[Rfam]
RNA: DUF3800-VIII RNA
RNA sequence: GAAGCCCUGCACGCUGUGAAGUCCCAGGUUCCACCCGGGAUACGAAACUACAGAAAUUUCAUAGCAGCUGCGGGGCUUU
Numbered sequence: 001g002a003a004g005c006c007c008u009g010c011a012c013g014c015u016g017u018g019a020a021g022u023c024c025c026a027g028g029u030u031c032c033a034c035c036c037g038g039g040a041u042a043c044g045a046a047a048c049u050a051c052a053g054a055a056a057u058u059u060c061a062u063a064g065c066a067g068c069u070g071c072g073g074g075g076c077u078u079u
Base pairs, nucleotide, nucleotide: 001079002078003077004076005075006074007073008072009071010070011069014067015066016065017064021041022040023039024038025037027035028034029033